[Rfam]
RNA sequence: GCAUCCAAGGAGCGUUGCAGCAGGCCACACGGUGGUCUUGUCAGGCUUGGAUGUUCCCAACGACGCUCACCUGGU
Number, nucleotide and partner (000 for none) at each position: 001g000002c053003a052004u051005c050006c049007a048008a047009g000010g000011a000012g000013c000014g000015u000016u000017g000018c000019a000020g000021c040022a039023g038024g037025c000026c035027a000028c000029a000030c000031g000032g000033u000034g000035g026036u000037c024038u023039u022040g021041u000042c000043a000044g000045g000046c000047u008048u007049g006050g005051a004052u003053g002054u000055u000056c000057c000058c000059a000060a000061c000062g000063a000064c000065g000066c000067u000068c000069a000070c000071c000072u000073g000074g000075u000
RNA: SAH (S-adenosyl-L-homocysteine) riboswitch aptamer
Organism: Rhodoferax sp. AJA081-3